[Rfam]
RNA sequence: GCAUGGACGAAUUCUGUUUUACUCUUCCUGUAGUAAACACAGUCAGACACCAUGCCAGAUUACUACGCUCUCCUUUUCUCACAGUGGUGCAUUACUGUGUGUUCUCACUCGUUUGGGGGGAAGCGAACAAUC
Dot-bracket structure: ((((((.......((((.(.................).)))).......))))))..........((((((((((.......((((.......................)))).))))))).))).......